[Rfam]
RNA sequence: CCGGCGGACCGGGCCCCUCUGGCGCGCUGAUUUUCAAGGCGCGUGAUGUCGGACCGCAUCG
Numbered sequence: 001c002c003g004g005c006g007g008a009c010c011g012g013g014c015c016c017c018u019c020u021g022g023c024g025c026g027c028u029g030a031u032u033u034u035c036a037a038g039g040c041g042c043g044u045g046a047u048g049u050c051g052g053a054c055c056g057c058a059u060c061g
Base pairs, nucleotide, nucleotide: 006055007054009052010051011050012049022044023043024042025041026040027039028038